[Rfam]
RNA: Group II catalytic intron D1-D4-2
Organism: Methyloprofundus sp.
RNA sequence: GGUGGUAGGUCCACUGAAGUCUGCGAUUGGAAGCUAGCUUCAAACCACCUCAAGCUGCGUGUAUUAAGAGUAAGGGCGGUGGUUUAUUGGGGGAGAAAAUAUAAUGACCCUAUUUAUCUGGU
Numbered sequence: 001g002g003u004g005g006u007a008g009g010u011c012c013a014c015u016g017a018a019g020u021c022u023g024c025g026a027u028u029g030g031a032a033g034c035u036a037g038c039u040u041c042a043a044a045c046c047a048c049c050u051c052a053a054g055c056u057g058c059g060u061g062u063a064u065u066a067a068g069a070g071u072a073a074g075g076g077c078g079g080u081g082g083u084u085u086a087u088u089g090g091g092g093g094a095g096a097a098a099a100u101a102u103a104a105u106g107a108c109c110c111u112a113u114u115u116a117u118c119u120g121g122u
Stems, first nucleotide, its partner, number of pairs: 001015005016041005023034002046121001048092006054080002057077002062072003101117004